[Rfam]
RNA sequence: UUCUCGCUCAAAGAAUCGCAUUCGAAGCACACACACAGAGAAGCCUCAAUGGGUCUCUCGGCUAGCAAUAGCUACUCUUGCUUUGGGAGAAAGUCCCCGGACACCCUUCAUUUAUGAAGGAUUGCGGAAACGCGCCGCCAUAGAAGCAACACAGUGGCUUCUCUUCUACCAAUUCUCUUUCACCUCAUUCACCCUCUUACCGCAUGUACCGCACUCUCGCCGAUCUCGGGGCUUUGAUGCAUGGCCUGGUGGACCGCAUGGAUGAAGAUACGAGUCCGAGCUCCCUGUGCGAUGUCUCUCGGCCCUGAAGGACUUGAGUUUGUGAGAGGUAUGAGGACUGUUAUUGGGGCGUUGGGGAUGUUCUGGUCGUCGAGGUUUUUUCGUCGAGAUUGACAGUUAUGCGAUUGCCUCCCUUGCUGCUUAGGUAGUGAGGGUGGUAACUCGAUGGGGCUUAUUCUUGAUGCGAGA
Numbered sequence: 001u002u003c004u005c006g007c008u009c010a011a012a013g014a015a016u017c018g019c020a021u022u023c024g025a026a027g028c029a030c031a032c033a034c035a036c037a038g039a040g041a042a043g044c045c046u047c048a049a050u051g052g053g054u055c056u057c058u059c060g061g062c063u064a065g066c067a068a069u070a071g072c073u074a075c076u077c078u079u080g081c082u083u084u085g086g087g088a089g090a091a092a093g094u095c096c097c098c099g100g101a102c103a104c105c106c107u108u109c110a111u112u113u114a115u116g117a118a119g120g121a122u123u124g125c126g127g128a129a130a131c132g133c134g135c136c137g138c139c140a141u142a143g144a145a146g147c148a149a150c151a152c153a154g155u156g157g158c159u160u161c162u163c164u165u166c167u168a169c170c171a172a173u174u175c176u177c178u179u180u181c182a183c184c185u186c187a188u189u190c191a192c193c194c195u196c197u198u199a200c201c202g203c204a205u206g207u208a209c210c211g212c213a214c215u216c217u218c219g220c221c222g223a224u225c226u227c228g229g230g231g232c233u234u235u236g237a238u239g240c241a242u243g244g245c246c247u248g249g250u251g252g253a254c255c256g257c258a259u260g261g262a263u264g265a266a267g268a269u270a271c272g273a274g275u276c277c278g279a280g281c282u283c284c285c286u287g288u289g290c291g292a293u294g295u296c297u298c299u300c301g302g303c304c305c306u307g308a309a310g311g312a313c314u315u316g317a318g319u320u321u322g323u324g325a326g327a328g329g330u331a332u333g334a335g336g337a338c339u340g341u342u343a344u345u346g347g348g349g350c351g352u353u354g355g356g357g358a359u360g361u362u363c364u365g366g367u368c369g370u371c372g373a374g375g376u377u378u379u380u381u382c383g384u385c386g387a388g389a390u391u392g393a394c395a396g397u398u399a400u401g402c403g404a405u406u407g408c409c410u411c412c413c414u415u416g417c418u419g420c421u422u423a424g425g426u427a428g429u430g431a432g433g434g435u436g437g438u439a440a441c442u443c444g445a446u447g448g449g450g451c452u453u454a455u456u457c458u459u460g461a462u463g464c465g466a467g468a
Stems, first nucleotide, its partner, number of pairs: 002468006008461004014406006022087001023085006038059004043054004091453003095450004123134004292378001294376001298374006305366003408437002411434009
RNA: RNase MRP